[Rfam]
RNA sequence: UGCGACUCCCAUCAAAGGGUAGUUCCCCACCCAGGAGCUACUUUCCCAUAUUCAGAAUUC
Dot-bracket structure: ................((((((((((.......)))))))))).................
Numbered sequence: 001u002g003c004g005a006c007u008c009c010c011a012u013c014a015a016a017g018g019g020u021a022g023u024u025c026c027c028c029a030c031c032c033a034g035g036a037g038c039u040a041c042u043u044u045c046c047c048a049u050a051u052u053c054a055g056a057a058u059u060c
Stems, first nucleotide, its partner, number of pairs: 017043010

This 60-nucleotide RNA sequence from Coptis chinensis belongs to the Rfam family "Plastid-psbN 5UTR RNA". NCBI's taxonomy places the organism under Eukaryota, Viridiplantae, Euphyllophyta, Magnoliopsida, Coptis. Rfam's curators write: Plastid psbN is a non-coding RNA (ncRNA) recognised in plastids.